[Rfam]
RNA: BsrC
Organism: Pueribacillus theae
RNA sequence: UGGACCUUAUACGACAGAAGCCCUACCUCUCUUCCGUUCUUACGGUUCCUAGACCGCGCCAGUAUGAAUAAGAUUAAUUAGAGACGA
Numbered sequence: 001u002g003g004a005c006c007u008u009a010u011a012c013g014a015c016a017g018a019a020g021c022c023c024u025a026c027c028u029c030u031c032u033u034c035c036g037u038u039c040u041u042a043c044g045g046u047u048c049c050u051a052g053a054c055c056g057c058g059c060c061a062g063u064a065u066g067a068a069u070a071a072g073a074u075u076a077a078u079u080a081g082a083g084a085c086g087a
Base pairs, nucleotide, nucleotide: 035066036065039062040061041058043056044055045054046053047052